[Rfam]
RNA sequence: CCUGAGGGAGCGUUUUGCUUACGUGUACAUAAAACGCGUCCUUAAGGGCGAGCUUUAUGUCCACGUAGGCAAAACGCUACCUCAGGG
Dot-bracket structure: (((((((.(((((((((((((.(((.(((((((.(.((.((....)).)).).))))))).))).))))))))))))).))))))).
RNA: MIR7486 microRNA precursor family
Organism: Gossypium aridum